A member of the RNA family "Enterococcus sRNA 2410" from Pilibacter termitis, 155 nucleotides long. Rfam describes the family as follows. Produced as 2 transcripts on Northern blot. A search with the family's covariance model found it, with a score of 68 bits. A reference for the family is Sinel et al. (2017), "Small RNAs in vancomycin-resistant Enterococcus faecium involved in daptomycin response and resistance", Sci Rep. The base pairs follow the family's consensus structure, which was predicted with RNAfold.

RNA sequence: UUAGCUAUUUUAGAUAGUUUGUGUUCAUGUGAAAUCAUGGAUACAAACGGCGAAAACGUAAGUUUGUAUCUAUGAUGGCUAAGGAUUUUCCCUAUGACUUUCAAGCCACGUAGAUAAAAAAAUCUAUGGUGGCUUUUUCAUUUAUCUUUUUGCAA
Numbered sequence: 001u002u003a004g005c006u007a008u009u010u011u012a013g014a015u016a017g018u019u020u021g022u023g024u025u026c027a028u029g030u031g032a033a034a035u036c037a038u039g040g041a042u043a044c045a046a047a048c049g050g051c052g053a054a055a056a057c058g059u060a061a062g063u064u065u066g067u068a069u070c071u072a073u074g075a076u077g078g079c080u081a082a083g084g085a086u087u088u089u090c091c092c093u094a095u096g097a098c099u100u101u102c103a104a105g106c107c108a109c110g111u112a113g114a115u116a117a118a119a120a121a122a123u124c125u126a127u128g129g130u131g132g133c134u135u136u137u138u139c140a141u142u143u144a145u146c147u148u149u150u151u152g153c154a155a
Stems, first nucleotide, its partner, number of pairs: 001082007011072006017048012051066004088155002091152001094149001099140001104134006111126003